[Rfam]
RNA sequence: CUUGAUCGAGCCCAGCCACAGCGGCUUUUCCCGCCCCUGGCCGUACGUCGCGAGCAGCGCCUGCGCCUC
Numbered sequence: 001c002u003u004g005a006u007c008g009a010g011c012c013c014a015g016c017c018a019c020a021g022c023g024g025c026u027u028u029u030c031c032c033g034c035c036c037c038u039g040g041c042c043g044u045a046c047g048u049c050g051c052g053a054g055c056a057g058c059g060c061c062u063g064c065g066c067c068u069c
Base pairs, nucleotide, nucleotide: 014026015025016024017023031065032059033058037054038053041050043048